[Rfam]
RNA: Bacterial RNase P class A
RNA sequence: CCAGUUGGCCGGGCAGCCGCUCUCCGCUAGGGCCGAAAGGUUGCGGGGGGAGGAAAGUCCGGGCUCCACGGAAAGACGGUGCCGGAUAACGUCCGGCGAGGGCGACCUCAGGGAAAGUGCCACAGAAAGCAAACCGCCGCCUUCGGGCGGUAAGGGUGAAAGGGUGGGGUAAGAGCCCACCGCGGUCAUGGUGACAUGAACGGCACGGUAAACCCCACCGGGAGCAAAACCGAAUAGGGAUAACGUGGAGCGCGCAAGCGCUCCGGCCUUUUCCGGGCUAGUUAUCCGGGUGGGUUGCAAGAGGCAUCGCGCAAGCGCUGUCCCAGAUGAAUGGCUGCCACGUUCCGGCCUCGGUCGGAGCCAUACAGAACCCGGCUUACAGGCCAACUGGCGAA
Number, nucleotide and partner (000 for none) at each position: 001c391002c390003a389004g388005u387006u386007g385008g384009c383010c382011g380012g339013g338014c337015a336016g335017c334018c333019g000020c050021u049022c048023u047024c046025c045026g044027c043028u000029a000030g000031g000032g000033c000034c000035g000036a000037a000038a000039g000040g000041u000042u000043g027044c026045g025046g024047g023048g022049g021050g020051a000052g000053g000054a000055a378056a377057g376058u000059c375060c374061g373062g372063g371064c224065u223066c222067c221068a000069c000070g000071g000072a000073a000074a272075g271076a000077c220078g219079g218080u217081g216082c096083c095084g094085g093086a092087u000088a000089a000090c000091g000092u086093c085094c084095g083096g082097c111098g109099a108100g107101g106102g000103c000104g000105a000106c101107c100108u099109c098110a000111g097112g215113g214114a000115a000116a000117g213118u212119g209120c208121c207122a000123c000124a000125g000126a000127a000128a000129g000130c000131a000132a000133a000134c155135c154136g151137c150138c149139g148140c147141c146142u000143u000144c000145g000146g141147g140148c139149g138150g137151u136152a000153a000154g135155g134156g000157u000158g000159a000160a000161a000162g000163g181164g180165u179166g178167g177168g176169g000170u000171a000172a000173g000174a000175g000176c168177c167178c166179a165180c164181c163182g204183c202184g201185g000186u199187c198188a197189u196190g195191g000192u000193g000194a000195c190196a189197u188198g187199a186200a000201c184202g183203g000204c182205a000206c000207g121208g120209u119210a000211a000212a118213c117214c113215c112216c081217a080218c079219c078220g077221g067222g066223a065224g064225c000226a000227a000228a296229a295230c294231c293232g000233a000234a000235u000236a000237g000238g287239g286240a285241u284242a283243a282244c000245g000246u000247g000248g000249a000250g000251c000252g000253c000254g000255c000256a000257a000258g000259c000260g000261c000262u000263c000264c000265g279266g278267c277268c276269u275270u000271u075272u074273c000274c000275g269276g268277g267278c266279u265280a000281g000282u243283u242284a241285u240286c239287c238288g000289g000290g000291u000292g000293g231294g230295u229296u228297g000298c000299a000300a000301g000302a000303g322304g321305c320306a319307u000308c317309g316310c315311g000312c000313a000314a000315g310316c309317g308318c000319u306320g305321u304322c303323c000324c000325a000326g000327a000328u000329g000330a000331a000332u000333g018334g017335c016336u015337g014338c013339c012340a000341c000342g000343u000344u000345c000346c000347g000348g000349c000350c000351u000352c000353g000354g000355u000356c000357g000358g000359a000360g000361c000362c000363a000364u000365a000366c000367a000368g000369a000370a000371c063372c062373c061374g060375g059376c057377u056378u055379a000380c011381a000382g010383g009384c008385c007386a006387a005388c004389u003390g002391g001392c000393g000394a000395a000